[Rfam]
Annotation
Shown here is a 178-nucleotide RNA from Prevotella communis, a member of the family "Bacteroidales-1 6S-Bacteroidales RNA suggested". The literature on the family includes a 2020 paper in Nat Commun by Ryan et al., "A high-resolution transcriptome map identifies small RNA regulation of metabolism in the gut microbe Bacteroides thetaiotaomicron". The source organism's lineage runs through Bacteria, Bacteroidota, Bacteroidales, Prevotellaceae and Prevotella. Bacteroidales-1 was first reported in a comparative genomics-based approach of genome and metagenome sequences from Weinberg et al. 2010 In a high-resolution transcriptome map study of Bacteroides thetaiotaomicron, Ryan et al. 2020 report this sRNA as 6S RNA homologue of Bacteroides, in the study they obtain evidence of small product RNAs (pRNAs) related to 6S function. Rfam classes the family as a small RNA.
RNA sequence: GACCGUCUCGGUUAGAUUGGGAUACUCAUCAAAUAACAAUGAAAACCGGGCAGUCUUCUCUUGUCGAUGGCGGGCCAUUACCCAAGCGUUUUCCAAAUGCCGAUGGAUUACAAAGACGGAGAGCACCCAUAACCUGUGAUAAAGGAGUUUUCAUCACAUCACCCUGGCGGUCCCUUUU
Numbered sequence: 001g002a003c004c005g006u007c008u009c010g011g012u013u014a015g016a017u018u019g020g021g022a023u024a025c026u027c028a029u030c031a032a033a034u035a036a037c038a039a040u041g042a043a044a045a046c047c048g049g050g051c052a053g054u055c056u057u058c059u060c061u062u063g064u065c066g067a068u069g070g071c072g073g074g075c076c077a078u079u080a081c082c083c084a085a086g087c088g089u090u091u092u093c094c095a096a097a098u099g100c101c102g103a104u105g106g107a108u109u110a111c112a113a114a115g116a117c118g119g120a121g122a123g124c125a126c127c128c129a130u131a132a133c134c135u136g137u138g139a140u141a142a143a144g145g146a147g148u149u150u151u152c153a154u155c156a157c158a159u160c161a162c163c164c165u166g167g168c169g170g171u172c173c174c175u176u177u178u
Stems, first nucleotide, its partner, number of pairs: 055123002058121002061119005068112002075106004080089002093099001